[Rfam]
RNA sequence: GGCAGCACCGGGAGAGCGACCUGGUAGCUGGCAGAAAUAGCUCCCUUGGCACGAGCGAUUGCCAUGGGGAGUUUUCUGCGCUCUUCAAAUCUCUGAAAAGAGUUAGUGCAUUUGCGACAAGCGCCUGUAUAGCGGCGAACUUGUUUAAGCGGAUACCGCAUCGCUCGGGGCGAACAUGUUUCUCCUCGCGGUUCCGUAGUCCCG
Numbered sequence: 001g002g003c004a005g006c007a008c009c010g011g012g013a014g015a016g017c018g019a020c021c022u023g024g025u026a027g028c029u030g031g032c033a034g035a036a037a038u039a040g041c042u043c044c045c046u047u048g049g050c051a052c053g054a055g056c057g058a059u060u061g062c063c064a065u066g067g068g069g070a071g072u073u074u075u076c077u078g079c080g081c082u083c084u085u086c087a088a089a090u091c092u093c094u095g096a097a098a099a100g101a102g103u104u105a106g107u108g109c110a111u112u113u114g115c116g117a118c119a120a121g122c123g124c125c126u127g128u129a130u131a132g133c134g135g136c137g138a139a140c141u142u143g144u145u146u147a148a149g150c151g152g153a154u155a156c157c158g159c160a161u162c163g164c165u166c167g168g169g170g171c172g173a174a175c176a177u178g179u180u181u182c183u184c185c186u187c188g189c190g191g192u193u194c195c196g197u198a199g200u201c202c203c204g
Base pairs, nucleotide, nucleotide: 003030004029005028006027007025008024009023010022011021012020031079032078033077034076035075036074037073042069043068044067045066047064048063049062050061051060149197150196151195152194153193155192156191157190158189159188167187168186169185170184172182173181174180
Cyano-2 RNA: a 204-nucleotide RNA sequence.